[Rfam]
RNA sequence: AGAGUAAGUCAGCCUAAUUCGGCAAUCACAACAAGCAUGAUUGCUGGAACGGAGGAACCAAUAUUUGGGGCGUAUCUCUUUAUUGUACUGAGUAAAAAGCGCUGAAUGUUGAGUUACUACUAGUUCAUGUCAUUAAUUCUGAUGUGUUGUGGAGCAGGCAGGGAUGCCUAAGCCUCAAGACAUUGCAAGAAGAUAUUACUUAUACCAGUAAGACUGAUGACAUCGACUACUAGGUAAACUCAGUAUUUGUAACUCAACACUCACAACUUGAAAGAGAAGAGUAUCUCUCAACUCUAGCCCGUCAGCUAACUUCGUAGGCAUUGAGGGAAAACUGA
Number, nucleotide and partner (000 for none) at each position: 001a000002g000003a000004g000005u000006a000007a000008g000009u000010c000011a000012g319013c318014c317015u000016a000017a000018u048019u047020c046021g045022g044023c043024a042025a041026u040027c039028a038029c000030a000031a000032c000033a000034a000035g000036c000037a000038u028039g027040a026041u025042u024043g023044c022045u021046g020047g019048a018049a315050c314051g313052g312053a311054g310055g000056a000057a000058c000059c067060a066061a000062u000063a000064u000065u000066u060067g059068g300069g299070g298071c000072g000073u000074a000075u000076c276077u275078c274079u273080u272081u271082a000083u000084u000085g000086u000087a000088c000089u000090g000091a000092g000093u000094a000095a000096a000097a000098a000099g000100c000101g000102c000103u000104g000105a000106a000107u000108g000109u000110u000111g000112a000113g000114u000115u000116a000117c000118u000119a000120c000121u000122a000123g000124u000125u000126c000127a000128u000129g000130u000131c000132a000133u000134u000135a000136a000137u000138u000139c000140u000141g000142a000143u000144g000145u000146g000147u000148u000149g000150u000151g000152g000153a000154g000155c000156a000157g000158g000159c000160a000161g000162g000163g000164a000165u000166g000167c000168c000169u000170a000171a000172g000173c000174c000175u000176c000177a000178a000179g000180a000181c000182a000183u000184u000185g000186c000187a000188a000189g000190a000191a000192g000193a000194u000195a000196u000197u000198a000199c000200u000201u000202a000203u000204a000205c000206c000207a000208g000209u000210a000211a000212g000213a000214c000215u000216g000217a000218u000219g000220a000221c000222a000223u000224c000225g000226a000227c000228u000229a000230c000231u000232a000233g000234g000235u000236a000237a000238a000239c000240u000241c000242a000243g000244u000245a000246u000247u000248u000249g000250u000251a000252a000253c000254u000255c000256a000257a000258c000259a000260c000261u000262c000263a000264c000265a000266a000267c000268u000269u000270g000271a081272a080273a079274g078275a077276g076277a000278a000279g294280a293281g292282u291283a000284u000285c000286u000287c000288u000289c000290a000291a282292c281293u280294c279295u000296a000297g000298c070299c069300c068301g000302u000303c000304a000305g000306c000307u000308a000309a000310c054311u053312u052313c051314g050315u049316a000317g014318g013319c012320a000321u000322u000323g000324a000325g000326g000327g000328a000329a000330a000331a000332c000333u000334g000335a000
Rfam assigns this 335-nucleotide sequence from Calothrix sp. C42_A2020_038 to the family "c-di-AMP riboswitch aptamer (ydaO/yuaA leader)".
NCBI's taxonomy places the organism under Bacteria, Bacillati, Cyanophyceae, Calotrichaceae, Calothrix.
Rfam's curators write: This family represents a conserved RNA structure found upstream of the ydaO and yuaA genes in Bacillus subtilis and related genes in other bacteria.
Its family is annotated with regulation of gene expression and cyclic-di-AMP binding in the Gene Ontology.